[Rfam]
RNA: sroC RNA
RNA sequence: ACUAAUUAGAACAACAGGGGCGGGAUCUCCUGCCCUCUCGAUUGUCGGGAAGCAUGGACAGACUAUACGUUGAGUGGUCGUUCCCCACUCAGCACGAAAAAUGAGCUUCUCACCAAUCUUCGAGGGUAGCGCUGCUACCCUU
Numbered sequence: 001a002c003u004a005a006u007u008a009g010a011a012c013a014a015c016a017g018g019g020g021c022g023g024g025a026u027c028u029c030c031u032g033c034c035c036u037c038u039c040g041a042u043u044g045u046c047g048g049g050a051a052g053c054a055u056g057g058a059c060a061g062a063c064u065a066u067a068c069g070u071u072g073a074g075u076g077g078u079c080g081u082u083c084c085c086c087a088c089u090c091a092g093c094a095c096g097a098a099a100a101a102u103g104a105g106c107u108u109c110u111c112a113c114c115a116a117u118c119u120u121c122g123a124g125g126g127u128a129g130c131g132c133u134g135c136u137a138c139c140c141u142u
Base pairs, nucleotide, nucleotide: 018035019034020033021032022030023029036125037124038123039122040121041117042116043115044114047111048110059096069093070092071091072090073089074088075087076086077085